This 399-nucleotide RNA sequence from Actinokineospora auranticolor belongs to the Rfam family "Bacterial RNase P class A".

RNA sequence: CGAGUCGACCGGGCGGCCGCGGCGGUGUGACCCACCGACGAGGAAAGUCCGGACUCCGCAGGGCAGGGUGGUUGUUAACGGCAACCCGAGGUGACUCGCGGGACAGUGCCACAGAGAACAGACCGCCGGUGGAUCGGGCCAUCCGAGUCCACCUGGUAAGGGUGAAACGGUGGUGUAAGAGACCACCAGCGCCCCGGGUGACCGGGGCGGCUAGGUAAACCCCACCCGGAGCAAGGCCAAGAGGGAGCCGCGAGGCUCCUGCGCAGACGUCCGAGGGCGGCCCGCCCGAGUCUGCGGGUAGGCCGCACGAACCUGCCGGCGACGGCAGGUCUAGAUGGAUGGUCGCCACCCAGGGCUCGCCCUGGGAACAGGAUCCGGCUUAUGGCGUCGGCUCGCCCG
Numbered sequence: 001c002g003a004g005u006c007g008a009c010c011g012g013g014c015g016g017c018c019g020c021g022g023c024g025g026u027g028u029g030a031c032c033c034a035c036c037g038a039c040g041a042g043g044a045a046a047g048u049c050c051g052g053a054c055u056c057c058g059c060a061g062g063g064c065a066g067g068g069u070g071g072u073u074g075u076u077a078a079c080g081g082c083a084a085c086c087c088g089a090g091g092u093g094a095c096u097c098g099c100g101g102g103a104c105a106g107u108g109c110c111a112c113a114g115a116g117a118a119c120a121g122a123c124c125g126c127c128g129g130u131g132g133a134u135c136g137g138g139c140c141a142u143c144c145g146a147g148u149c150c151a152c153c154u155g156g157u158a159a160g161g162g163u164g165a166a167a168c169g170g171u172g173g174u175g176u177a178a179g180a181g182a183c184c185a186c187c188a189g190c191g192c193c194c195c196g197g198g199u200g201a202c203c204g205g206g207g208c209g210g211c212u213a214g215g216u217a218a219a220c221c222c223c224a225c226c227c228g229g230a231g232c233a234a235g236g237c238c239a240a241g242a243g244g245g246a247g248c249c250g251c252g253a254g255g256c257u258c259c260u261g262c263g264c265a266g267a268c269g270u271c272c273g274a275g276g277g278c279g280g281c282c283c284g285c286c287c288g289a290g291u292c293u294g295c296g297g298g299u300a301g302g303c304c305g306c307a308c309g310a311a312c313c314u315g316c317c318g319g320c321g322a323c324g325g326c327a328g329g330u331c332u333a334g335a336u337g338g339a340u341g342g343u344c345g346c347c348a349c350c351c352a353g354g355g356c357u358c359g360c361c362c363u364g365g366g367a368a369c370a371g372g373a374u375c376c377g378g379c380u381u382a383u384g385g386c387g388u389c390g391g392c393u394c395g396c397c398c399g
Stems, first nucleotide, its partner, number of pairs: 001395009010385001011383001012347007020040002023037005045381003049378005054231004061283004066227005071085005086100001087098004101222002106220002108216003123161002125157005130151004169187006189211001190209008235304004263295006275287004311330008
The source organism's lineage runs through Bacteria, Actinomycetota, Actinomycetes, Pseudonocardiaceae and Actinokineospora.